[Rfam]
RNA sequence: UUUGGUUGAAAACAACCACUGGCAUUGACUAUGACCAUGAGUGAGAUUUGGCACUCAGAGCCACCAGGAUUCAUAGCCCCAUUGGUCACUGCCUGUGAAUUGGGGGUGAAACCCAGGCCUUGACAGGU
Numbered sequence: 001u002u003u004g005g006u007u008g009a010a011a012a013c014a015a016c017c018a019c020u021g022g023c024a025u026u027g028a029c030u031a032u033g034a035c036c037a038u039g040a041g042u043g044a045g046a047u048u049u050g051g052c053a054c055u056c057a058g059a060g061c062c063a064c065c066a067g068g069a070u071u072c073a074u075a076g077c078c079c080c081a082u083u084g085g086u087c088a089c090u091g092c093c094u095g096u097g098a099a100u101u102g103g104g105g106g107u108g109a110a111a112c113c114c115a116g117g118c119c120u121u122g123a124c125a126g127g128u
Stems, first nucleotide, its partner, number of pairs: 005052006015042002021036002067121001071117002080108004087097003
Shown here is a 128-nucleotide RNA sequence from Microcebus murinus, a member of the family "Small nucleolar RNA ACA64". The family has 30 seed sequences and 9,537 matches in Rfam 15.1. By type it is an H/ACA-box small nucleolar RNA. The match comes from Rfam's covariance-model search (46 bits).